[Rfam]
RNA sequence: CAAUAGGGUGGCUGCAUGCCUCAGGAAGCUUGGGGUACCACCCUUGC
Numbered sequence: 001c002a003a004u005a006g007g008g009u010g011g012c013u014g015c016a017u018g019c020c021u022c023a024g025g026a027a028g029c030u031u032g033g034g035g036u037a038c039c040a041c042c043c044u045u046g047c
Base pairs, nucleotide, nucleotide: 006043007042008041009040010039011038018036019035020034021033022032023031024030025029